This 176-nucleotide RNA sequence from Clostridium celatum belongs to the Rfam family "Lysine riboswitch aptamer".
RNA sequence: AAUUAGGGUAGAGGCGCGAUUAAUUAAUAGUAUUAUUGAUGAGGAAAGCACUAUGAUUCAAUAUGAAAGGAAUUAUCGCCGAAGCGUACAACCGAUGCUUUAAGGUUGUAUAGCUGGGAGUGCAUAAAAUAUAUGUACUACUGUCACAAAAUAUUUUGUGGUGAGCUAUCAUUUGA
Numbered sequence: 001a002a003u004u005a006g007g008g009u010a011g012a013g014g015c016g017c018g019a020u021u022a023a024u025u026a027a028u029a030g031u032a033u034u035a036u037u038g039a040u041g042a043g044g045a046a047a048g049c050a051c052u053a054u055g056a057u058u059c060a061a062u063a064u065g066a067a068a069g070g071a072a073u074u075a076u077c078g079c080c081g082a083a084g085c086g087u088a089c090a091a092c093c094g095a096u097g098c099u100u101u102a103a104g105g106u107u108g109u110a111u112a113g114c115u116g117g118g119a120g121u122g123c124a125u126a127a128a129a130u131a132u133a134u135g136u137a138c139u140a141c142u143g144u145c146a147c148a149a150a151a152u153a154u155u156u157u158g159u160g161g162u163g164a165g166c167u168a169u170c171a172u173u174u175g176a
Base pairs, nucleotide, nucleotide: 007170008169009168010167011166016079017078018077019076020075023073024072025071034063035062036061037060038059039058083115084114085113087110088109089108090107091106092105093104116142117141119139120138121137122136123135124134125133126132144161145160146159147158148157149156150155

Its family is annotated with lysine biosynthetic process in the Gene Ontology. The organism belongs to Clostridium celatum, within Bacteria. From the family's description: Riboswitches are metabolite binding domains within certain messenger RNAs that serve as precision sensors for their corresponding targets. Allosteric rearrangement of mRNA structure is mediated by ligand binding, and this results in modulation of gene expression. This family includes riboswitches that sense lysine in a number of genes involved in lysine metabolism, including lysC.